This 98-nucleotide sequence from Pseudobdellovibrio exovorus belongs to the Rfam family "Purine riboswitch aptamer". The organism belongs to Pseudobdellovibrio exovorus, within Bacteria. Pairs were carried over by alignment from the consensus structure, which is taken from published work. Rfam links the family to the GO term purine nucleobase biosynthetic process. The match comes from Rfam's covariance-model search (56 bits).
[Rfam]
RNA sequence: UGUUAAUAGCCCUGCAACUCAUUUAUAAGCGGGUAAUAGGGUCCCGCGUUUCUACCAGGCGCCGUAAAUGUCUGACUAACGGAGUAUAUAUGAAAUUC
Number, nucleotide and partner (000 for none) at each position: 001u000002g000003u000004u000005a000006a000007u000008a000009g000010c000011c000012c000013u000014g000015c000016a000017a000018c084019u083020c082021a000022u000023u079024u078025a077026u000027a000028a000029g047030c046031g045032g044033g043034u000035a000036a000037u000038a000039g000040g000041g000042u000043c033044c032045c031046g030047c029048g000049u000050u000051u000052c000053u000054a000055c000056c074057a073058g072059g071060c070061g069062c000063c000064g000065u000066a000067a000068a000069u061070g060071u059072c058073u057074g056075a000076c000077u025078a024079a023080c000081g000082g020083a019084g018085u000086a000087u000088a000089u000090a000091u000092g000093a000094a000095a000096u000097u000098c000